[Rfam]
RNA sequence: UGGUCUCAGAUUAGGCAAGACUACCCGCUGAACUUAAGCAUAUCAAUAAGCGGAGGAAAAGAAACUAACCAGGAUUCCCCUAGUAACGGCGAGUGAAGCGGGAACAGCUCAAGACCGAAUCCCCCCCGCGGGGGAGUUGUAGUCUAUGGAUGCGCAUUCGAGUCGCGGCCCCAGACCAAGUCCUGUGGAAUAAGGCGCCGGAGAGGGUGAUAGCCCCGUCUGUCUGAGUGGGCGGCAGCGGCCGUAUGAAUGGGUAUCCGAGAGUCGGGUUGUUUGGGAAUGCAGCCCUAAGCGGGAGGUAUGCACCUUCCAAAGCUAAAUAUUCAGGCAAGAGACCGAUAGCGAACAAGUACUGUGAAGGAAAGUUGAAAAGCACUCUGGAGAGAGAGUGAAAAGAACGUGAAACCAUUGGUAGGGAAC
Numbered sequence: 001u002g003g004u005c006u007c008a009g010a011u012u013a014g015g016c017a018a019g020a021c022u023a024c025c026c027g028c029u030g031a032a033c034u035u036a037a038g039c040a041u042a043u044c045a046a047u048a049a050g051c052g053g054a055g056g057a058a059a060a061g062a063a064a065c066u067a068a069c070c071a072g073g074a075u076u077c078c079c080c081u082a083g084u085a086a087c088g089g090c091g092a093g094u095g096a097a098g099c100g101g102g103a104a105c106a107g108c109u110c111a112a113g114a115c116c117g118a119a120u121c122c123c124c125c126c127c128g129c130g131g132g133g134g135a136g137u138u139g140u141a142g143u144c145u146a147u148g149g150a151u152g153c154g155c156a157u158u159c160g161a162g163u164c165g166c167g168g169c170c171c172c173a174g175a176c177c178a179a180g181u182c183c184u185g186u187g188g189a190a191u192a193a194g195g196c197g198c199c200g201g202a203g204a205g206g207g208u209g210a211u212a213g214c215c216c217c218g219u220c221u222g223u224c225u226g227a228g229u230g231g232g233c234g235g236c237a238g239c240g241g242c243c244g245u246a247u248g249a250a251u252g253g254g255u256a257u258c259c260g261a262g263a264g265u266c267g268g269g270u271u272g273u274u275u276g277g278g279a280a281u282g283c284a285g286c287c288c289u290a291a292g293c294g295g296g297a298g299g300u301a302u303g304c305a306c307c308u309u310c311c312a313a314a315g316c317u318a319a320a321u322a323u324u325c326a327g328g329c330a331a332g333a334g335a336c337c338g339a340u341a342g343c344g345a346a347c348a349a350g351u352a353c354u355g356u357g358a359a360g361g362a363a364a365g366u367u368g369a370a371a372a373g374c375a376c377u378c379u380g381g382a383g384a385g386a387g388a389g390u391g392a393a394a395a396g397a398a399c400g401u402g403a404a405a406c407c408a409u410u411g412g413u414a415g416g417g418a419a420c
Base pairs, nucleotide, nucleotide: 024055025053026052027051028050029049035042036041065072066071076103077102078101079100086094087093106317107316108315109314113144114143115142117140119138121136123134124133125132126131149258150257153253156251157250158249159248162242163241164240165239166238168236170228172226173225174224175223176222180196182195183194184193199203206216207215267288268287269286270285271284272283273282294311295310296309297308298307353360354359376387377386378385379384
The family of this 420-nucleotide part of an RNA from Coemansia brasiliensis is "Eukaryotic large subunit ribosomal RNA". Lineage of the source: Eukaryota > Opisthokonta > Kickxellomycetes > Kickxellaceae > Coemansia. Rfam 15.1 lists 107,465 matches to the family in 2,616 species.